[Rfam]
RNA sequence: CAAGAUAUAGCUUAAACAAAGUAUCUAGUUUACACCUAGAAGAUUUCAUACACAUGAAUAUCUUGA
Numbered sequence: 001c002a003a004g005a006u007a008u009a010g011c012u013u014a015a016a017c018a019a020a021g022u023a024u025c026u027a028g029u030u031u032a033c034a035c036c037u038a039g040a041a042g043a044u045u046u047c048a049u050a051c052a053c054a055u056g057a058a059u060a061u062c063u064u065g066a
Base pairs, nucleotide, nucleotide: 001065002064003063004062005061006060007059010022011021012020013019024040025039026038027037028036045058046057047056048055049054